[Rfam]
RNA sequence: AGCCGGGGACCCCCGGCAGUCGCAGCGCCAACCGGGGACGGCCCCG
Numbered sequence: 001a002g003c004c005g006g007g008g009a010c011c012c013c014c015g016g017c018a019g020u021c022g023c024a025g026c027g028c029c030a031a032c033c034g035g036g037g038a039c040g041g042c043c044c045c046g
Stems, first nucleotide, its partner, number of pairs: 002017006033046005